[Rfam]
RNA sequence: GUCGCCGGUGGGGCGGGCGGUCUCCUCAAGGACGACCACGGGGAGAAAGAAACCGAACCGAACCCCACCCCUCCGCCCCGCCGAGGCCACGCUCACUCGCUUGAGUGAAUAUGCCCAAAUCGGCUGGCCAUAGGGAGGGUUGCUUGAUCUACGCUCAGCGCGACACACCACAUCACUGCCGACAUACGUCGGCCCCCGCCGGGACGGCAAUCCCGAUGCGAGGGCCUGACCACCAAGGAAGAGAACAGCUUCCCG
Numbered sequence: 001g002u003c004g005c006c007g008g009u010g011g012g013g014c015g016g017g018c019g020g021u022c023u024c025c026u027c028a029a030g031g032a033c034g035a036c037c038a039c040g041g042g043g044a045g046a047a048a049g050a051a052a053c054c055g056a057a058c059c060g061a062a063c064c065c066c067a068c069c070c071c072u073c074c075g076c077c078c079c080g081c082c083g084a085g086g087c088c089a090c091g092c093u094c095a096c097u098c099g100c101u102u103g104a105g106u107g108a109a110u111a112u113g114c115c116c117a118a119a120u121c122g123g124c125u126g127g128c129c130a131u132a133g134g135g136a137g138g139g140u141u142g143c144u145u146g147a148u149c150u151a152c153g154c155u156c157a158g159c160g161c162g163a164c165a166c167a168c169c170a171c172a173u174c175a176c177u178g179c180c181g182a183c184a185u186a187c188g189u190c191g192g193c194c195c196c197c198g199c200c201g202g203g204a205c206g207g208c209a210a211u212c213c214c215g216a217u218g219c220g221a222g223g224g225c226c227u228g229a230c231c232a233c234c235a236a237g238g239a240a241g242a243g244a245a246c247a248g249c250u251u252c253c254c255g
Stems, first nucleotide, its partner, number of pairs: 007234004016082004093108006123159005191226005197220003201214004237253005

This 255-nucleotide RNA from Streptomyces venezuelae belongs to the Rfam family "Streptomyces sRNA 4677". The family has 12 seed sequences and 563 matches in Rfam 15.1. The literature on the family includes a 2014 paper in PLoS One by Hindra et al., "Complex intra-operonic dynamics mediated by a small RNA in Streptomyces coelicolor". The family's RNA type in Rfam is small RNA. NCBI's taxonomy places the organism under Bacteria, Actinomycetota, Actinomycetes, Kitasatosporales, Streptomyces venezuelae. Located in the intergenic region between anti-sigma factor SCO4677 gene and a putative regulatory protein gene SCO4676. scr4677 expression requires the SCO4677 activity and scr4677 sRNA itself seem to affect the levels of the SCO4676-associated transcripts.